RNA sequence: AGAUGAGAGAAACACCCCGCCCGCGGGAGACCGCGGGUGACACCAGGGCGGAGCCUCCCCAGCCCCGCCCGGGUCGUGCCACCGCGCACGCACCCGGAGCAUUCUGCUCCGGAACUCCUCACCGAUCGGA
Dot-bracket structure: ...((((.((.......(((((((((....)))))))))..(((.((.(((.((.......)).))).)).))).((((......))))....((((((((...))))))))...))))))((....)).
Numbered sequence: 001a002g003a004u005g006a007g008a009g010a011a012a013c014a015c016c017c018c019g020c021c022c023g024c025g026g027g028a029g030a031c032c033g034c035g036g037g038u039g040a041c042a043c044c045a046g047g048g049c050g051g052a053g054c055c056u057c058c059c060c061a062g063c064c065c066c067g068c069c070c071g072g073g074u075c076g077u078g079c080c081a082c083c084g085c086g087c088a089c090g091c092a093c094c095c096g097g098a099g100c101a102u103u104c105u106g107c108u109c110c111g112g113a114a115c116u117c118c119u120c121a122c123c124g125a126u127c128g129g130a
Stems, first nucleotide, its partner, number of pairs: 004121004009117002018039009042074003046070002049067003053063002076089004094112008122129002
A member of the RNA family "Streptomyces RNA 5676" from Streptomyces sp. NRRL S-1521, 130 nucleotides long. Rfam's curators write: Identified by deep sequencing of transcriptome at the end of exponential growth phase. Appears longer on northern blot than sequencing transcript. This indicates processing step. The base pairs follow the family's consensus structure. The organism belongs to Streptomyces, within Bacteria. The match comes from Rfam's covariance-model search (111 bits).